RNA sequence: UAAUAUAUAUAGGAAAAAUCUUUAUUUAGCUAUGGUAGACACACAUCUGACUGCUCAAAUCACUCGUUAUCAUAGGUCCGACAACAUCAUUUAGUUUUCAAGAGAGAGUUUUUAGUGGGAUCCAUGUAAAACUAUGAU
Numbered sequence: 001u002a003a004u005a006u007a008u009a010u011a012g013g014a015a016a017a018a019u020c021u022u023u024a025u026u027u028a029g030c031u032a033u034g035g036u037a038g039a040c041a042c043a044c045a046u047c048u049g050a051c052u053g054c055u056c057a058a059a060u061c062a063c064u065c066g067u068u069a070u071c072a073u074a075g076g077u078c079c080g081a082c083a084a085c086a087u088c089a090u091u092u093a094g095u096u097u098u099c100a101a102g103a104g105a106g107a108g109u110u111u112u113u114a115g116u117g118g119g120a121u122c123c124a125u126g127u128a129a130a131a132c133u134a135u136g137a138u
Stems, first nucleotide, its partner, number of pairs: 004136004008131001012127001014125001018121002023117003028110004
This 138-nucleotide sequence from Populus deltoides belongs to the Rfam family "MIR480 microRNA precursor family". Its family is annotated with miRNA-mediated post-transcriptional gene silencing and RISC complex in the Gene Ontology. The source organism's lineage runs through Eukaryota, Tracheophyta, Malpighiales, Saliceae and Populus.